[Rfam]
RNA sequence: GCAUAGCUGAAUAUCGUGUUUUUUUCAGUAGUUUACAAAGCCAGACACCAUGCAAAAGUAAAGUCUUCUCUUGAAAAUGCCUACAAUAGAUGGUAUGCUAAGUUUGUUCAUAACAUACCAUUUUAAAAAAAAAUAAAGAC
Numbered sequence: 001g002c003a004u005a006g007c008u009g010a011a012u013a014u015c016g017u018g019u020u021u022u023u024u025u026c027a028g029u030a031g032u033u034u035a036c037a038a039a040g041c042c043a044g045a046c047a048c049c050a051u052g053c054a055a056a057a058g059u060a061a062a063g064u065c066u067u068c069u070c071u072u073g074a075a076a077a078u079g080c081c082u083a084c085a086a087u088a089g090a091u092g093g094u095a096u097g098c099u100a101a102g103u104u105u106g107u108u109c110a111u112a113a114c115a116u117a118c119c120a121u122u123u124u125a126a127a128a129a130a131a132a133a134u135a136a137a138g139a140c
Stems, first nucleotide, its partner, number of pairs: 001053004006048001014040001017037003066133002069129001071127002074124002089122009099112002

Description:
The family of this 140-nucleotide sequence from Lynx pardinus is "Small nucleolar RNA SNORA15". The family has 22 seed sequences and 974 matches in Rfam 15.1. For this family Rfam cites "RNomics: an experimental approach that identifies 201 candidates for novel, small, non-messenger RNAs in mouse" (Huttenhofer et al., EMBO J, 2001). Lineage of the source: Eukaryota > Opisthokonta > Chordata > Laurasiatheria > Lynx. Rfam's curators write: ACA15 is a member of the H/ACA class of snoRNA that guide the sites of modification of uridines to pseudouridines.